[Rfam]
RNA sequence: CACGCCCCUCUUUGACUGCUCCAUCCCUGUGUAGUUAUUAGUGUUGUCACUGACCGACCGCCUCUUUGCGGUCGGUUUUUUU
Dot-bracket structure: ............(((((((...........)))))))((((((....))))))((((((((......)))))))).......
Hfq-regulated sRNA 13: an 82-nucleotide sequence from Erwinia amylovora.
Rfam links the family to the GO term protein binding.
Rfam's curators put it in the seed alignment.